Background: Shown here is a 77-nucleotide RNA from Crocodylus porosus, a member of the family "Mammalian CPEB3 ribozyme". A search with the family's covariance model found it, with a score of 43 bits. About the family: The mammalian CPEB3 ribozyme is a self cleaving RNA located in the second intron of the CPEB3 gene which belongs to a family of genes regulating messenger RNA polyadenylation.
RNA sequence: UUACAAGCGAGGUAGGCCAUAGCAGAAGUGCUCACAGCGUGACCUUGUCAGAGUCCAAAGAAUCUGGGAAUUCUGCU
Numbered sequence: 001u002u003a004c005a006a007g008c009g010a011g012g013u014a015g016g017c018c019a020u021a022g023c024a025g026a027a028g029u030g031c032u033c034a035c036a037g038c039g040u041g042a043c044c045u046u047g048u049c050a051g052a053g054u055c056c057a058a059a060g061a062a063u064c065u066g067g068g069a070a071u072u073c074u075g076c077u
Stems, first nucleotide, its partner, number of pairs: 014045003018041001021077007028040003049066004054061002